[Rfam]
RNA sequence: UCCUUAUCUUUUAAAAGUUUCAAGCUGGUCCCUUAUCUUUAUUUUAGGUUUCAAGUUGGUCCAUUCCGUCAAUUUUUUAACUAUUUCCGUUAAAUUUGGACACAUGACAAACUAAUUUGGACACGUGGCACACUUGGACAUAUGACACAUGUCCAAAUUUAACGGCAACAGUAAAAAAAUUGACGGAAGGGACCAACUUGAAUCCUAAAAUAAAGAUAAGGGACCAAGUUGAAACUUUUAAAAGAUAAGGGA
Dot-bracket structure: .(((((((..............(...(((.(((((((((((((.(((.............................................................................................................................................................))).))))))))))))).)))...)..............)))))))..
The record is a 252-nucleotide RNA from Trifolium subterraneum, which matches "MIR2655 microRNA precursor family" in Rfam. The base pairs follow the family's consensus structure, which was predicted with RNAalifold. The source organism's lineage runs through Eukaryota, Streptophytina, rosids, Fabales and Trifolium. Gene Ontology terms of the family: miRNA-mediated post-transcriptional gene silencing and RISC complex.